This 144-nucleotide sequence from Miscanthus lutarioriparius belongs to the Rfam family "Small nucleolar RNA snoR138". Its family is annotated with RNA processing and nucleolus in the Gene Ontology. Rfam classes the family as an H/ACA-box small nucleolar RNA. On this family, see Chen and Wu, Nucleic Acids Res 2009: "Mining small RNA sequencing data: a new approach to identify small nucleolar RNAs in Arabidopsis". The match comes from Rfam's covariance-model search (45 bits). The source organism's lineage runs through Eukaryota, Liliopsida, Petrosaviidae, Andropogoneae and Miscanthus.
RNA sequence: AUUGCUUCUUGAAUAACCGAUUGCAGAUACUAUCUAUUCGCAGGCGGUUCAGACAGGGGCAUAGAGCAAAUCUGAAUCCCCACGAGGGAAGGGUUAUUUCCAUUGAUCCUUUCUCGUUCGGAUUUCGAAUAGAUUUACAUAUAC
Number, nucleotide and partner (000 for none) at each position: 001a000002u000003u061004g060005c059006u058007u057008c000009u056010u000011g000012a000013a000014u000015a049016a048017c047018c046019g045020a000021u043022u042023g000024c040025a000026g038027a000028u000029a000030c000031u000032a000033u000034c000035u000036a000037u000038u026039c000040g024041c000042a022043g021044g000045c019046g018047g017048u016049u015050c000051a000052g000053a000054c000055a000056g009057g007058g006059g005060c004061a003062u000063a000064g000065a000066g000067c000068a000069a000070a000071u000072c000073u137074g136075a135076a134077u133078c132079c000080c121081c120082a000083c000084g115085a114086g113087g000088g112089a000090a000091g109092g108093g107094u106095u105096a104097u000098u000099u000100c000101c000102a000103u000104u096105g095106a094107u093108c092109c091110u000111u000112u088113c086114u085115c084116g000117u000118u000119c000120g081121g080122a000123u000124u000125u000126c000127g000128a000129a000130u000131a000132g078133a077134u076135u075136u074137a073138c000139a000140u000141a000142u000143a000144c000